A member of the RNA family "t44 RNA" from Marinobacter daqiaonensis, 108 nucleotides long. This family consists of a number of bacterial RNA genes of between 135 and 170 bases in length. The t44 gene has been identified in several species of enteric bacteria but homologs have also been identified in Pseudomonas and Coxiella species. The t44 gene is found between the map and rpsB genes in all species in the full alignment apart from Shigella flexneri.
RNA sequence: CGGUGUCGCCGGCAAAUUCACACACGCGUCAGCACGUUGUUCCAGGGUGCCUGUUUCAUGGCCGGGAGGCCGCUCAGGUUGGAGCAAUCGGACGUGUGGAGGACUAAC
Numbered sequence: 001c002g003g004u005g006u007c008g009c010c011g012g013c014a015a016a017u018u019c020a021c022a023c024a025c026g027c028g029u030c031a032g033c034a035c036g037u038u039g040u041u042c043c044a045g046g047g048u049g050c051c052u053g054u055u056u057c058a059u060g061g062c063c064g065g066g067a068g069g070c071c072g073c074u075c076a077g078g079u080u081g082g083a084g085c086a087a088u089c090g091g092a093c094g095u096g097u098g099g100a101g102g103a104c105u106a107a108c
Stems, first nucleotide, its partner, number of pairs: 023098008036088009049079005
Taxonomically the source falls in Marinobacter (Bacteria, Pseudomonadati, Pseudomonadota, Pseudomonadales). The family's RNA type in Rfam is small RNA. Pairs were carried over by alignment from the consensus structure, which was predicted with LocARNA. On this family, see Tjaden et al., Nucleic Acids Res 2002: "Transcriptome analysis of Escherichia coli using high-density oligonucleotide probe arrays".